[Rfam]
RNA sequence: AAUAGAUAGCUGAUACUCAAGGGUGGUUAGCUCACUCCCUCUAAGAAAGGGGGUGAUGUCAUGACAGUAUUUGAAGCAUUAAUGUUUGCAAUCUCGUUUGCAACGUUAGUCAUUGCAAUUCUGUCAUUUAAUCAUAAAAAAUAACCCAUCCUUGAGUUAGCCGCUCUGAUGGGUUAUUUCUACCUUUGGAGCCAAUCCCCUUAAAGGAAUCAACUAUCGUUUUGACCGUUCGAUGGGACAACAUCGGCG
Numbered sequence: 001a002a003u004a005g006a007u008a009g010c011u012g013a014u015a016c017u018c019a020a021g022g023g024u025g026g027u028u029a030g031c032u033c034a035c036u037c038c039c040u041c042u043a044a045g046a047a048a049g050g051g052g053g054u055g056a057u058g059u060c061a062u063g064a065c066a067g068u069a070u071u072u073g074a075a076g077c078a079u080u081a082a083u084g085u086u087u088g089c090a091a092u093c094u095c096g097u098u099u100g101c102a103a104c105g106u107u108a109g110u111c112a113u114u115g116c117a118a119u120u121c122u123g124u125c126a127u128u129u130a131a132u133c134a135u136a137a138a139a140a141a142u143a144a145c146c147c148a149u150c151c152u153u154g155a156g157u158u159a160g161c162c163g164c165u166c167u168g169a170u171g172g173g174u175u176a177u178u179u180c181u182a183c184c185u186u187u188g189g190a191g192c193c194a195a196u197c198c199c200c201u202u203a204a205a206g207g208a209a210u211c212a213a214c215u216a217u218c219g220u221u222u223u224g225a226c227c228g229u230u231c232g233a234u235g236g237g238a239c240a241a242c243a244u245c246g247g248c249g
Stems, first nucleotide, its partner, number of pairs: 001221003005218001007216003011212001014195001016156008025146004032056003036052005063125005069119001076089003099117004166188001168186001196209001198207002227249003231246005

The record is a 249-nucleotide RNA from Rummeliibacillus sp. TYF005, which matches "BsrG" in Rfam. The match comes from Rfam's covariance-model search (111 bits). Rfam describes the family as follows. bsrE, bsrG and bsrH pair through intermolecular interactions with antisense sRNAs. They form type I toxin/antitoxin system that includes an mRNA encoding for a short, toxic peptide (bsrE, bsrG and bsrH) and an antitoxin that is comprised of an antisense RNA. bsrG encodes a 39-amino-acid toxin, and the 180 nucleotide antisense sRNA called SR4 acts as the antitoxin (they overlap by 123 nucleotides). SR4 interaction with the 3'UTR of bsrG RNA promotes bsrG degradation and inhibits its translation. BsrG interferes with cell envelope biosynthesis, causes membrane invaginations and delocalisation of the cell wall synthesis and initiates autolysis. bsrE RNA encodes 30 amino-acid toxin peptide. Its antitoxin gene, SR5 overlaps by 112 nucleotides at the 3' end of bsrE. SR5 also overlaps bsrG from nucleotide 163 to 52 (Rfam overlap check). The antitoxin SR5 promotes bsrE degradation but unlike SR4 it does not directly inhibits toxin mRNA translation. Gene Ontology terms of the family: autolysis and toxin activity.